Rfam assigns this 96-nucleotide RNA from Photobacterium lipolyticum to the family "Tryptophan operon leader". The source organism's lineage runs through Bacteria, Pseudomonadota, Gammaproteobacteria, Vibrionaceae and Photobacterium. By type it is a cis-regulatory leader. The literature on the family includes a 1982 paper in Annu Rev Genet by Kolter and Yanofsky, "Attenuation in amino acid biosynthetic operons".

RNA sequence: AUCACUUGGUGGUGGCACUUCCCAACGCGGGUGGUGUGAUUAGCUGUACCUUACAGACAGAAUAGACACAAACCCGCCUAGCGCGGGUUUUUUUAU
Dot-bracket structure: ........((.(..(((((.(((.....))).)))))...).))..........................(((((((.....))))))).......